[Rfam]
RNA sequence: GUUCUGUUGAGGUUGUUACUGAUAAAGUGACAUCAGCCCGUUAACAUUGAAAAACGAGUUAGCGUGUAACAAUAAGCACAAAUCUAUCCAUGCAAGCAUUGACCGCCAUAACCGGCGGUUUUUUUUUGCGCCAGAUAAAGCAAAAACGGCUUCUUACAUAUAAUGUAAGAAGCCGUCGCGGUGGGGGAUUAUCGUCGUUCAUCAAUCG
Dot-bracket structure: ..............(((((.......))))).......(((((.(.(.(.....)).).))))).....................................((((((......))))))....................((......((((((((((.......))))))))))))................................
RNA: STnc560 Hfq binding RNA
Organism: Kosakonia cowanii